The record is a 102-nucleotide RNA sequence, which matches "DUF3577 RNA" in Rfam.
RNA sequence: CGAAUCGGAUAAGUGUCUUCGGACACGAAACUCGCCUGCAAUUCCCGGCAUCACCGCGCAAGCGGUGUGGCGACUUCACUUCUGCCUUCGGGCAGUAUCAAA
Numbered sequence: 001c002g003a004a005u006c007g008g009a010u011a012a013g014u015g016u017c018u019u020c021g022g023a024c025a026c027g028a029a030a031c032u033c034g035c036c037u038g039c040a041a042u043u044c045c046c047g048g049c050a051u052c053a054c055c056g057c058g059c060a061a062g063c064g065g066u067g068u069g070g071c072g073a074c075u076u077c078a079c080u081u082c083u084g085c086c087u088u089c090g091g092g093c094a095g096u097a098u099c100a101a102a
Stems, first nucleotide, its partner, number of pairs: 013026005032073005052067006080097001082095004